[Rfam]
RNA sequence: GCCCAGAUGAGUCCUGGUGGUCCAGGGUACAGGCUUCAAACCUGUAGCCGCUUAGCGGCGGAGUAGUUCGAUUCUACCUUCUGGGU
Numbered sequence: 001g002c003c004c005a006g007a008u009g010a011g012u013c014c015u016g017g018u019g020g021u022c023c024a025g026g027g028u029a030c031a032g033g034c035u036u037c038a039a040a041c042c043u044g045u046a047g048c049c050g051c052u053u054a055g056c057g058g059c060g061g062a063g064u065a066g067u068u069c070g071a072u073u074c075u076a077c078c079u080u081c082u083g084g085g086u
Stems, first nucleotide, its partner, number of pairs: 001086007009078001012027006028046006048061005063077004

The record is an 86-nucleotide RNA from Thelazia callipaeda, which matches "Selenocysteine transfer RNA" in Rfam.
Taxonomically the source falls in Thelazia (Eukaryota, Ecdysozoa, Chromadorea, Spirurina).
For this family Rfam cites "Eukaryotic selenocysteine tRNA has the 9/4 secondary structure" (Mizutani and Goto, FEBS Lett, 2000).
The match comes from Rfam's covariance-model search (71 bits).
The family is grouped with related families in Rfam's "tRNA clan".